A member of the RNA family "mir-3473 microRNA precursor family" from Rattus norvegicus, 79 nucleotides long. The organism belongs to Rattus, within Eukaryota. The family has 5 seed sequences and 1,094 matches in Rfam 15.1. The match comes from Rfam's covariance-model search (74 bits). The family's consensus secondary structure was predicted with RNAalifold.
Nucleotides: 079
Base pairs, nucleotide, nucleotide: 002078003077004076005075006074007073008072009071010070011069012068013067014066015065016064017063018062019061020060021059022058023057
Number, partner (000 for none) and nucleotide at each position: 001000a002078c003077c004076a005075c006074u007073g008072a009071g010070c011069c012068a013067u014066c015065u016064c017063u018062c019061c020060a021059g022058u023057c024000c025000u026000u027000a028000u029000u030000a031000a032000u033000a034000a035000a036000u037000u038000u039000u040000u041000a042000c043000u044000a045000a046000a047000a048000a049000u050000a051000u052000u053000a054000g055000a056000a057023g058022g059021c060020u061019g062018g063017g064016g065015a066014g067013a068012u069011g070010g071009c072008u073007c074006a075005g076004u077003g078002g079000u